[Rfam]
RNA sequence: GAUCCAGGACGGCCUGGGCCGCAGUCGUGCACUGAUCCAGGACGGCCUGG
Numbered sequence: 001g002a003u004c005c006a007g008g009a010c011g012g013c014c015u016g017g018g019c020c021g022c023a024g025u026c027g028u029g030c031a032c033u034g035a036u037c038c039a040g041g042a043c044g045g046c047c048u049g050g
Stems, first nucleotide, its partner, number of pairs: 001020001003018006037050005

Shown here is a 50-nucleotide RNA from Mustela putorius, a member of the family "Guanidine-II riboswitch aptamer (mini-ykkC)". A search with the family's covariance model found it, with a score of 34 bits. Simpler in structure and has fewer highly conserved nucleotide positions than the ykkC-yxkD leader. The organism belongs to Mustela putorius, within Eukaryota. A reference for the family is Weinberg et al. (2007), "Identification of 22 candidate structured RNAs in bacteria using the CMfinder comparative genomics pipeline", Nucleic Acids Res.